[Rfam]
RNA sequence: ACUUUAACAGGGCAAACCUCGCGAAAGCGAGGGACGCAAAGUCAUUGAUCUACAGGGCCAAUGCCCCAGGAUAGCAAGACUGCAAAA
Numbered sequence: 001a002c003u004u005u006a007a008c009a010g011g012g013c014a015a016a017c018c019u020c021g022c023g024a025a026a027g028c029g030a031g032g033g034a035c036g037c038a039a040a041g042u043c044a045u046u047g048a049u050c051u052a053c054a055g056g057g058c059c060a061a062u063g064c065c066c067c068a069g070g071a072u073a074g075c076a077a078g079a080c081u082g083c084a085a086a087a
Stems, first nucleotide, its partner, number of pairs: 012037002017032006040081004045077003048072003055066004
The record is an 87-nucleotide sequence from Nitrosomonas aestuarii, which matches "c-di-GMP-I riboswitch aptamer" in Rfam.
The match comes from Rfam's covariance-model search (81 bits).
The literature on the family includes a 2007 paper in Nucleic Acids Res by Weinberg et al., "Identification of 22 candidate structured RNAs in bacteria using the CMfinder comparative genomics pipeline".
The family's consensus secondary structure is taken from published work.